[Rfam]
RNA sequence: GCCACAAAUAAUGGAAGAGAAAGAAACUUGAUUCUGAAAUCUGAUGUUACAUUGCAACACGAUGAUGUGA
Numbered sequence: 001g002c003c004a005c006a007a008a009u010a011a012u013g014g015a016a017g018a019g020a021a022a023g024a025a026a027c028u029u030g031a032u033u034c035u036g037a038a039a040u041c042u043g044a045u046g047u048u049a050c051a052u053u054g055c056a057a058c059a060c061g062a063u064g065a066u067g068u069g070a
Stems, first nucleotide, its partner, number of pairs: 003069004
A member of the RNA family "Small nucleolar RNA SNORD82" from Sciurus carolinensis, 70 nucleotides long.
Gene Ontology terms of the family: nucleolus and RNA processing.
From the family's description: snoRNA U82 or Z25 is found in both humans and mice.
The literature on the family includes a 2002 paper in Mol Cell Biol by Galardi et al., "Purified box C/D snoRNPs are able to reproduce site-specific 2'-O-methylation of target RNA in vitro".